[Rfam]
Rfam assigns this 126-nucleotide RNA sequence from Pseudomonas pohangensis to the family "rmf RNA". The family's consensus secondary structure is taken from published work. Taxonomically the source falls in Pseudomonas (Bacteria, Pseudomonadati, Pseudomonadota, Pseudomonadales).

RNA sequence: UUGGUUAGAAAUCAGCUUAACCCGUCAGCGCAAUGCUGCUGGGCUGGAGUUUCGCAACGCCGGCUGCAAACUCCACUGGCUUACCACCAGACCCUGCCAGAGGGUGAAUGGCACAUAACAGUCAAA
Dot-bracket structure: ....................((((.((((.....)))).))))....(((((.((..........))))))).....((.......))..(((((.....))))).....................
Numbered sequence: 001u002u003g004g005u006u007a008g009a010a011a012u013c014a015g016c017u018u019a020a021c022c023c024g025u026c027a028g029c030g031c032a033a034u035g036c037u038g039c040u041g042g043g044c045u046g047g048a049g050u051u052u053c054g055c056a057a058c059g060c061c062g063g064c065u066g067c068a069a070a071c072u073c074c075a076c077u078g079g080c081u082u083a084c085c086a087c088c089a090g091a092c093c094c095u096g097c098c099a100g101a102g103g104g105u106g107a108a109u110g111g112c113a114c115a116u117a118a119c120a121g122u123c124a125a126a
Stems, first nucleotide, its partner, number of pairs: 021043004026038004048072005054067002078088002091105005